[Rfam]
RNA sequence: UUGGGUUGGGGCAAAAUACGCCUCCUGCAAAUUCAGAACAUAACCGACGCUCACCGCGUCGGUUAUUUUUUUGC
Numbered sequence: 001u002u003g004g005g006u007u008g009g010g011g012c013a014a015a016a017u018a019c020g021c022c023u024c025c026u027g028c029a030a031a032u033u034c035a036g037a038a039c040a041u042a043a044c045c046g047a048c049g050c051u052c053a054c055c056g057c058g059u060c061g062g063u064u065a066u067u068u069u070u071u072u073g074c
Base pairs, nucleotide, nucleotide: 011021012020041065042064043063044062045061046060047059048058049057

The record is a 74-nucleotide sequence from Pantoea ananatis, which matches "Enterobacterial sRNA STnc240" in Rfam. The source organism's lineage runs through Bacteria, Pseudomonadati, Gammaproteobacteria, Enterobacterales and Pantoea ananatis. It scores 69 bits against the family's covariance model.